[Rfam]
RNA: Streptomyces RNA 1601
Organism: Streptomyces griseoaurantiacus
RNA sequence: GACGACCGGCCGAACACGUACGUGUCCGGCCCACAAGUGGAGGCUCCGAUCUCCCACCUGACCGUCCUGAGGGACGGCGGGUCACCGGUCAGACGAUCGUCACCGAUCCGUACGUCCCCGUACGGUCGGCGCAGUCGUCCGAAAGCGCGCCCCGCGGUCGACCGCGGCGGUGCUCCGGCCCUUCGGAGUCCCGCCUGUGUCCCGUCGGGGCAUUUUUG
Numbered sequence: 001g002a003c004g005a006c007c008g009g010c011c012g013a014a015c016a017c018g019u020a021c022g023u024g025u026c027c028g029g030c031c032c033a034c035a036a037g038u039g040g041a042g043g044c045u046c047c048g049a050u051c052u053c054c055c056a057c058c059u060g061a062c063c064g065u066c067c068u069g070a071g072g073g074a075c076g077g078c079g080g081g082u083c084a085c086c087g088g089u090c091a092g093a094c095g096a097u098c099g100u101c102a103c104c105g106a107u108c109c110g111u112a113c114g115u116c117c118c119c120g121u122a123c124g125g126u127c128g129g130c131g132c133a134g135u136c137g138u139c140c141g142a143a144a145g146c147g148c149g150c151c152c153c154g155c156g157g158u159c160g161a162c163c164g165c166g167g168c169g170g171u172g173c174u175c176c177g178g179c180c181c182u183u184c185g186g187a188g189u190c191c192c193g194c195c196u197g198u199g200u201c202c203c204g205u206c207g208g209g210g211c212a213u214u215u216u217u218g
Stems, first nucleotide, its partner, number of pairs: 004090006012027001028083005034060002037057004041052002062077006092139005101131001103129006149211006156202002163199003166195005172189005